Notes:
Shown here is a 281-nucleotide sequence from Sciurus vulgaris, a member of the family "Mason-Pfizer monkey virus packaging signal". Gene Ontology term of the family: viral genome packaging. Lineage of the source: Eukaryota > Craniata > Dipnotetrapodomorpha > Mammalia > Sciurus. This family represents a group of sequences that are related to the Mason-Pfizer monkey virus (MPMV) packaging signal. A search with the family's covariance model found it, with a score of 153 bits. Rfam 15.1 lists 2,921 matches to the family in 53 species. The family's RNA type in Rfam is cis-regulatory element.

[Rfam]
RNA sequence: UUGCGCCAAACGGUGUGGCUUUGGAUAUGGGGGAAUUCGCGAGGGAAGAGGCGUCUAAGUAUUCCGCUGCAGAAAAAAAGUGAAAGUCAGUUCGACAAAGAUCACUGCAGGAGCCUGCCGCGCCACUCUUAAAGGUACAGUAGCACCUAACUAUGGGACAAGAAUUAAGUAAGCAUAAAGUUUUUGUUAAGCAAUUAAAAGAAGCUUUAAAAACACGGGGAGUAAAGGUUAAGAGCAAUGAUUUUUUAAGUUUUUUGACCUUAUUAAGGACACCUGUCCAU
Numbered sequence: 001u002u003g004c005g006c007c008a009a010a011c012g013g014u015g016u017g018g019c020u021u022u023g024g025a026u027a028u029g030g031g032g033g034a035a036u037u038c039g040c041g042a043g044g045g046a047a048g049a050g051g052c053g054u055c056u057a058a059g060u061a062u063u064c065c066g067c068u069g070c071a072g073a074a075a076a077a078a079a080g081u082g083a084a085a086g087u088c089a090g091u092u093c094g095a096c097a098a099a100g101a102u103c104a105c106u107g108c109a110g111g112a113g114c115c116u117g118c119c120g121c122g123c124c125a126c127u128c129u130u131a132a133a134g135g136u137a138c139a140g141u142a143g144c145a146c147c148u149a150a151c152u153a154u155g156g157g158a159c160a161a162g163a164a165u166u167a168a169g170u171a172a173g174c175a176u177a178a179a180g181u182u183u184u185u186g187u188u189a190a191g192c193a194a195u196u197a198a199a200a201g202a203a204g205c206u207u208u209a210a211a212a213a214c215a216c217g218g219g220g221a222g223u224a225a226a227g228g229u230u231a232a233g234a235g236c237a238a239u240g241a242u243u244u245u246u247u248a249a250g251u252u253u254u255u256u257g258a259c260c261u262u263a264u265u266a267a268g269g270a271c272a273c274c275u276g277u278c279c280a281u
Base pairs, nucleotide, nucleotide: 006033007032013028014027015026038050040048091135092134095130100126106122107121108120110118141161143159146157147156148155149154166209167208168207169205170204216257217256218255219254220253221252222251223250226244227243228242229241230240231239266281268279269278270277271276